[Rfam]
RNA sequence: AUGUUCUCAACGGGGUGCCUGAAGAGCUGAGAAUGUUAAAUAGAAUAACAUAACCCGCCGAACCUGAACUGGAUCAUACCAGCGGAGGGAUUUGAGUUAUUUCACUUG
Dot-bracket structure: .....(((((((((..((.(...).))......(((((.......)))))...)))).....(((...((((......))))...)))...)))))............
Rfam assigns this 108-nucleotide RNA from Gilliamella sp. Occ3-1 to the family "TPP riboswitch aptamer (THI element)".